[Rfam]
RNA: Small nucleolar RNA SNORA48
RNA sequence: UGUCCCCGAUCUGGUGAACAGAGAGUUGGUGCUCUGUCAUCAGCCAGGGCCAAACCAACCCUGUUAUCCCAACUUGGCUUUUGGUCUACAUCCAUGCCUGGUUCAUGCCUUGGGCACAUUG
Numbered sequence: 001u002g003u004c005c006c007c008g009a010u011c012u013g014g015u016g017a018a019c020a021g022a023g024a025g026u027u028g029g030u031g032c033u034c035u036g037u038c039a040u041c042a043g044c045c046a047g048g049g050c051c052a053a054a055c056c057a058a059c060c061c062u063g064u065u066a067u068c069c070c071a072a073c074u075u076g077g078c079u080u081u082u083g084g085u086c087u088a089c090a091u092c093c094a095u096g097c098c099u100g101g102u103u104c105a106u107g108c109c110u111u112g113g114g115c116a117c118a119u120u121g
Base pairs, nucleotide, nucleotide: 001052002051004049005048006047008045011043012042013041014040019036020035021034062116063115064113065112066111076109077108078107082105083104084103086101087100088099091096
Dot-bracket structure: ((.(((.(..((((....(((............)))...)))).).))).)).........(((((.........(((...(((.(((..(....)..))).))).))).))).)).....